[Rfam]
The record is a 64-nucleotide sequence from Gallus gallus, which matches "mir-1 microRNA precursor family" in Rfam.
The literature on the family includes a 2001 paper in Science by Lee and Ambros, "An extensive class of small RNAs in Caenorhabditis elegans".
Lineage of the source: Eukaryota > Euteleostomi > Dipnotetrapodomorpha > Saurischia > Gallus.
About the family: This family represents the microRNA (miRNA) mir-1 family. miRNAs are transcribed as ~70nt precursors (modelled here) and subsequently processed by the Dicer enzyme to give a ~22nt product. In this case the mature sequence comes from the 3' arm of the precursor. The extents of the hairpin precursors are not generally known and are estimated based on hairpin prediction.
The family's consensus secondary structure was predicted with RNAalifold.
Its family is annotated with RISC complex and miRNA-mediated post-transcriptional gene silencing in the Gene Ontology.
Nucleotides: 064
Base pairs, nucleotide, nucleotide: 001061002060003059004058005057006056007055008054009053010052011051013049014048015047016046019044020043021042022041023040
Number, partner (000 for none) and nucleotide at each position: 001061a002060c003059a004058u005057a006056c007055u008054u009053c010052u011051u012000c013049a014048u015047a016046u017000g018000c019044c020043c021042a022041u023040a024000u025000g026000g027000a028000g029000u030000c031000g032000g033000c034000c035000g036000g037000c038000g039000u040023u041022a042021u043020g044019g045000a046016a047015u048014g049013u050000u051011a052010a053009g054008a055007a056006g057005u058004a059003u060002g061001u062000a063000u064000c